[Rfam]
Nucleotides: 331
Base pairs, nucleotide, nucleotide: 040049041048042047053174054173055172056171057170063167064166065165066163067162068161069160078151079150080149082148083147084146088104089103090102091101092100105133106132107131108130109129110128111127175192176191177190178189181204182203184202185201186200294312295311296310297309302328303327304326307323
Number, partner (000 for none) and nucleotide at each position: 001000g002000u003000g004000c005000u006000u007000g008000a009000c010000u011000u012000c013000c014000a015000c016000g017000c018000c019000u020000a021000u022000u023000g024000g025000u026000a027000a028000u029000a030000c031000a032000a033000u034000c035000u036000g037000c038000c039000c040049g041048u042047g043000g044000u045000u046000u047042c048041a049040c050000u051000a052000u053174g054173g055172c056171a057170a058000u059000a060000a061000a062000g063167g064166c065165u066163u067162c068161u069160u070000g071000g072000a073000a074000u075000a076000g077000g078151c079150g080149u081000u082148u083147u084146g085000g086000a087000c088104c089103c090102g091101a092100g093000g094000g095000c096000a097000g098000u099000g100092c101091u102090c103089g104088g105133c106132a107131u108130c109129u110128c111127c112000a113000c114000u115000g116000u117000u118000g119000c120000u121000u122000u123000g124000u125000a126000u127111g128110g129109g130108g131107a132106u133105g134000a135000a136000a137000c138000a139000g140000g141000a142000u143000a144000g145000a146084c147083a148082g149080a150079c151078g152000c153000a154000a155000u156000a157000a158000a159000g160069g161068a162067g163066a164000c165065a166064g167063c168000u169000u170057u171056u172055g173054c174053u175192c176191g177190g178189u179000g180000g181204g182203a183000a184202u185201u186200c187000c188000a189178g190177c191176c192175g193000u194000a195000u196000a197000a198000g199000u200186g201185g202184g203182u204181c205000a206000u207000u208000u209000u210000u211000a212000u213000a214000a215000g216000u217000g218000c219000a220000a221000a222000c223000g224000a225000u226000g227000a228000u229000u230000u231000c232000g233000u234000u235000g236000c237000c238000g239000c240000u241000a242000a243000u244000g245000a246000u247000a248000a249000c250000g251000u252000g253000g254000a255000a256000a257000c258000a259000g260000c261000u262000u263000u264000c265000g266000u267000a268000g269000c270000u271000g272000c273000u274000g275000c276000c277000u278000a279000g280000u281000u282000u283000u284000g285000u286000c287000u288000u289000u290000a291000g292000c293000g294312c295311g296310g297309u298000u299000u300000u301000g302328g303327g304326g305000g306000c307323u308000u309297a310296c311295c312294g313000g314000g315000c316000a317000a318000c319000a320000g321000a322000a323307a324000a325000g326304u327303c328302c329000c330000c331000g

Rfam assigns this 331-nucleotide RNA to the family "Alphaproteobacteria transfer-messenger RNA". It is annotated as a non-coding RNA gene. Clan: tRNA clan. The base pairs follow the family's consensus structure, which is taken from published work. Gene Ontology term of the family: RNA catabolic process. It scores 194 bits against the family's covariance model.